[Rfam]
RNA sequence: CUCUUAUCAAGAAAGGCUGAGGGAAAUGGCCCUGCGAAGCCUUGACAACCUGUCACGCUACCAAGCGCGAUAAGGUGCCACGUCCAGCUCCGAUGUAAGUCGGAGACAGAUAAGUC
Number, nucleotide and partner (000 for none) at each position: 001c000002u000003c114004u113005u112006a111007u110008c109009a000010a000011g000012a000013a043014a042015g041016g040017c039018u000019g000020a000021g032022g031023g030024a000025a000026a000027u086028g085029g084030c023031c022032c021033u000034g000035c000036g000037a000038a000039g017040c016041c015042u014043u013044g079045a000046c077047a076048a000049c075050c074051u072052g071053u070054c069055a000056c000057g000058c000059u000060a000061c000062c000063a000064a000065g000066c000067g000068c000069g054070a053071u052072a051073a000074g050075g049076u047077g046078c000079c044080a000081c000082g000083u108084c029085c028086a027087g000088c105089u104090c103091c102092g101093a100094u000095g000096u000097a000098a000099g000100u093101c092102g091103g090104a089105g088106a000107c000108a083109g008110a007111u006112a005113a004114g003115u000116c000
RNA: SAM riboswitch aptamer (S box leader)